[Rfam]
RNA: Bacterial small signal recognition particle RNA
RNA sequence: UGAGAGGUUGGGGCGGGCGGGCGCCUUGCCAACCCGGUCAGGUCCGGAAGGAAGCAGCCGCAACAAGUUUUGCUCGGGUCGUGUCCAGCCUCUCACCU
Numbered sequence: 001u002g003a004g005a006g007g008u009u010g011g012g013g014c015g016g017g018c019g020g021g022c023g024c025c026u027u028g029c030c031a032a033c034c035c036g037g038u039c040a041g042g043u044c045c046g047g048a049a050g051g052a053a054g055c056a057g058c059c060g061c062a063a064c065a066a067g068u069u070u071u072g073c074u075c076g077g078g079u080c081g082u083g084u085c086c087a088g089c090c091u092c093u094c095a096c097c098u
Base pairs, nucleotide, nucleotide: 004092005091006090007089008088010085011084013082014081015080018076019075020074021073022072023071025067026066027065028064035060036059037058038057043052044051045050